[Rfam]
RNA: FMN riboswitch aptamer (RFN element)
Organism: Anaerococcus vaginalis
RNA sequence: ACAAUUCUUCAGGGCGGGGUGUGAUUCCCCACCGGCGGUAAAGUCCGCGAGCUUUUUGCUGAAUAGGUGAAAUUCCUAUACCGACAGUAUAGUCUGGAUGAGAGAAGAUAUUU
Dot-bracket structure: ..(..(((((......(((.......))).[[((((((....[[))))..((.....))...(((((.......)))))]])).(((....]]))).......)))))..)..